Rfam assigns this 67-nucleotide sequence from Bacillus anthracis to the family "RAGATH-18 RNA". The sequence is in the family's curated seed alignment. From the family's description: Actinobacteria, Firmicutes, Fusobacteria, Thermotogae (1 example). The base pairs follow the family's consensus structure, which is taken from published work.
RNA sequence: CCUGUGGAGUGUUAGAUCAAACUGUAGUAGCGAGUGGUUGGCAAGGCAGGACACGUAGAAGCAGGAA
Numbered sequence: 001c002c003u004g005u006g007g008a009g010u011g012u013u014a015g016a017u018c019a020a021a022c023u024g025u026a027g028u029a030g031c032g033a034g035u036g037g038u039u040g041g042c043a044a045g046g047c048a049g050g051a052c053a054c055g056u057a058g059a060a061g062c063a064g065g066a067a
Stems, first nucleotide, its partner, number of pairs: 001065005009054005022049003030042002